[Rfam]
RNA sequence: CGAGUAAACUAUACGGUCGCGUGACGGAAACGCCAUGAGGAAAGUCCGAGCACCAGAGAGCAGAACGCCGGAUAACGUCCGGUGAAGGCGACUUCAAGGAAAGUGCAACAGAAACAGACCGCAGAGCAAUCUGCAAGGAUGGAAAGGGGAGGUAAGAGCUCACCGACGGCGCAGUAAUGCGCCGUGCCGUGCAAACCCCGUUCGGUGCAAGAUUGGGCAUAUGUCGCAUGGGCUGCUCGCCCGAUAUAUGCUGUGAAUAUCGCUCGAACGCAUCGGCGACGAUGCGUCUAGAUAGAUGACCGUACCAGACAGAACUCGGCUUACAGGUUUAUCUCGGAUU
Numbered sequence: 001c002g003a004g005u006a007a008a009c010u011a012u013a014c015g016g017u018c019g020c021g022u023g024a025c026g027g028a029a030a031c032g033c034c035a036u037g038a039g040g041a042a043a044g045u046c047c048g049a050g051c052a053c054c055a056g057a058g059a060g061c062a063g064a065a066c067g068c069c070g071g072a073u074a075a076c077g078u079c080c081g082g083u084g085a086a087g088g089c090g091a092c093u094u095c096a097a098g099g100a101a102a103g104u105g106c107a108a109c110a111g112a113a114a115c116a117g118a119c120c121g122c123a124g125a126g127c128a129a130u131c132u133g134c135a136a137g138g139a140u141g142g143a144a145a146g147g148g149g150a151g152g153u154a155a156g157a158g159c160u161c162a163c164c165g166a167c168g169g170c171g172c173a174g175u176a177a178u179g180c181g182c183c184g185u186g187c188c189g190u191g192c193a194a195a196c197c198c199c200g201u202u203c204g205g206u207g208c209a210a211g212a213u214u215g216g217g218c219a220u221a222u223g224u225c226g227c228a229u230g231g232g233c234u235g236c237u238c239g240c241c242c243g244a245u246a247u248a249u250g251c252u253g254u255g256a257a258u259a260u261c262g263c264u265c266g267a268a269c270g271c272a273u274c275g276g277c278g279a280c281g282a283u284g285c286g287u288c289u290a291g292a293u294a295g296a297u298g299a300c301c302g303u304a305c306c307a308g309a310c311a312g313a314a315c316u317c318g319g320c321u322u323a324c325a326g327g328u329u330u331a332u333c334u335c336g337g338a339u340u
Base pairs, nucleotide, nucleotide: 001336002335003334004333005331006330007329008328009327010326012304013303014302015301016300017299018298020037021036022035023034025032026031042322043321044320046319047318048317049316050315051207052206053205054204058238059237060236061235063203064202065201066200067199068082069081070080071079072078083097084095085094086093087092098198099197103196104195105192106191107190119138120137121134122133123132124131125130146164147163149161150160151159165187166185167184168183169182170181171180172179173178211261212260213259216252217251218250219249220248221247229243230242231241232240233239268287269286270285271284272283273282274281275280
The record is a 340-nucleotide RNA from Candidatus Borkfalkia ceftriaxoniphila, which matches "Bacterial RNase P class A" in Rfam. It is annotated as a ribozyme. Its family is annotated with dimeric ribonuclease P complex, tRNA processing and ribonuclease P activity in the Gene Ontology. The organism belongs to Candidatus Borkfalkia, within Bacteria. A search with the family's covariance model found it, with a score of 268 bits.